[Rfam]
Annotation
RAGATH-28 RNA: an 82-nucleotide sequence.

RNA sequence: GCGGGGUCGAUUCGUCCCCCGCGGCGUGACCGGCGGGCAUAGAAGAGCGGGAAGCCAGGCUGAAAGGCCCGGAUGGCGAAGC
Numbered sequence: 001g002c003g004g005g006g007u008c009g010a011u012u013c014g015u016c017c018c019c020c021g022c023g024g025c026g027u028g029a030c031c032g033g034c035g036g037g038c039a040u041a042g043a044a045g046a047g048c049g050g051g052a053a054g055c056c057a058g059g060c061u062g063a064a065a066g067g068c069c070c071g072g073a074u075g076g077c078g079a080a081g082c
Stems, first nucleotide, its partner, number of pairs: 001022006055072002058069004

It is one of the family's seed sequences.